Rfam assigns this 94-nucleotide RNA sequence from Treponema parvum to the family "TD-2 RNA".
On this family, see Weinberg et al., Nucleic Acids Res 2007: "Identification of 22 candidate structured RNAs in bacteria using the CMfinder comparative genomics pipeline".
Pairs were carried over by alignment from the consensus structure, which is taken from published work.
The family's RNA type in Rfam is small RNA.

RNA sequence: UCGCACACGGAUGUGCGACUUACAAGUAAUGUCGACAGUUUUUGAAAAAAACUGUCAGUUUAAGAAAAACAAGGAUGUUUUUCUUAAUACACAA
Numbered sequence: 001u002c003g004c005a006c007a008c009g010g011a012u013g014u015g016c017g018a019c020u021u022a023c024a025a026g027u028a029a030u031g032u033c034g035a036c037a038g039u040u041u042u043u044g045a046a047a048a049a050a051a052c053u054g055u056c057a058g059u060u061u062a063a064g065a066a067a068a069a070c071a072a073g074g075a076u077g078u079u080u081u082u083c084u085u086a087a088u089a090c091a092c093a094a
Stems, first nucleotide, its partner, number of pairs: 001018006035055009058090002060087011
Dot-bracket structure: ((((((......))))))................(((((((((...)))))))))..(((((((((((((......))))))))))).))....